A member of the RNA family "Bacterial RNase P class A" from Sulfitobacter sp. JL08, 394 nucleotides long. NCBI's taxonomy places the organism under Bacteria, Pseudomonadota, Alphaproteobacteria, Rhodobacterales, Sulfitobacter. It scores 284 bits against the family's covariance model. The base pairs follow the family's consensus structure, which is taken from published work.
RNA sequence: GCGGAGGGCUGGAUGGCCGCGGGCGGGGCAACCCGUCCGAGGAAAGUCCGGACUCCCUAAAGCAACGGUGCCGGGUAACACCCGGGCGGGGCAACCCGACGGACAGCGCCGCAGAAAUGAAACCGCCUUUCCCCGGAAAGGUAAGGAUGAAACGGUGGGGUAAGAGCCCACCGCACCGCUGGCAACAGGGGUGGCACGGCAAGCCCCACCGGGAGCAAUGCCAAAUAGGACCCUUGCGCGGGCUGGUCGGGCAACCGAUACCGCCGCAGGCCGCUUUAGCCGGAAGGGUCGGGUUGGCAGCUAGAGGUGCCGUGGCAACACGGCAUCAAGAGGAAUGGUCAUCCAUCCGCGUUCGCGCGGGGGACAGAAUCCGGCUUACAGGCUCUCCGCGCGU
Numbered sequence: 001g002c003g004g005a006g007g008g009c010u011g012g013a014u015g016g017c018c019g020c021g022g023g024c025g026g027g028g029c030a031a032c033c034c035g036u037c038c039g040a041g042g043a044a045a046g047u048c049c050g051g052a053c054u055c056c057c058u059a060a061a062g063c064a065a066c067g068g069u070g071c072c073g074g075g076u077a078a079c080a081c082c083c084g085g086g087c088g089g090g091g092c093a094a095c096c097c098g099a100c101g102g103a104c105a106g107c108g109c110c111g112c113a114g115a116a117a118u119g120a121a122a123c124c125g126c127c128u129u130u131c132c133c134c135g136g137a138a139a140g141g142u143a144a145g146g147a148u149g150a151a152a153c154g155g156u157g158g159g160g161u162a163a164g165a166g167c168c169c170a171c172c173g174c175a176c177c178g179c180u181g182g183c184a185a186c187a188g189g190g191g192u193g194g195c196a197c198g199g200c201a202a203g204c205c206c207c208a209c210c211g212g213g214a215g216c217a218a219u220g221c222c223a224a225a226u227a228g229g230a231c232c233c234u235u236g237c238g239c240g241g242g243c244u245g246g247u248c249g250g251g252c253a254a255c256c257g258a259u260a261c262c263g264c265c266g267c268a269g270g271c272c273g274c275u276u277u278a279g280c281c282g283g284a285a286g287g288g289u290c291g292g293g294u295u296g297g298c299a300g301c302u303a304g305a306g307g308u309g310c311c312g313u314g315g316c317a318a319c320a321c322g323g324c325a326u327c328a329a330g331a332g333g334a335a336u337g338g339u340c341a342u343c344c345a346u347c348c349g350c351g352u353u354c355g356c357g358c359g360g361g362g363g364a365c366a367g368a369a370u371c372c373g374g375c376u377u378a379c380a381g382g383c384u385c386u387c388c389g390c391g392c393g394u
Stems, first nucleotide, its partner, number of pairs: 001390010011379001012343007020039008044377003048374005053215004061276002066211005071085005086100001087098004101206002106204002108200003123146002125142007154172006173195001174193004179188003219299004229290006267283001269281003307326008
Gene Ontology terms of the family: dimeric ribonuclease P complex, ribonuclease P activity and tRNA processing.